[Rfam]
RNA sequence: UCCCGCUAAGGGCAAAGCCGUCGAAAGGCGGGGGCGCAAAGCUGCGGGCCUAAGGCCUUAUGGGCUAGGGCAGCCGGGCUGCCGGG
Numbered sequence: 001u002c003c004c005g006c007u008a009a010g011g012g013c014a015a016a017g018c019c020g021u022c023g024a025a026a027g028g029c030g031g032g033g034g035c036g037c038a039a040a041g042c043u044g045c046g047g048g049c050c051u052a053a054g055g056c057c058u059u060a061u062g063g064g065c066u067a068g069g070g071c072a073g074c075c076g077g078g079c080u081g082c083c084g085g086g
Base pairs, nucleotide, nucleotide: 012037013036018031019030020029021028022027040080041079042078043077045076046075047074048071049070050069055065056064057063058062
A member of the RNA family "c-di-GMP-I riboswitch aptamer" from Thermanaeromonas sp. C210, 86 nucleotides long.
Rfam's curators write: GEMM was predicted in a large-scale screen for bacterial structured RNA regulatory elements.
NCBI's taxonomy places the organism under Bacteria, Bacillati, Clostridia, Neomoorellales, Thermanaeromonas.
A search with the family's covariance model found it, with a score of 76 bits.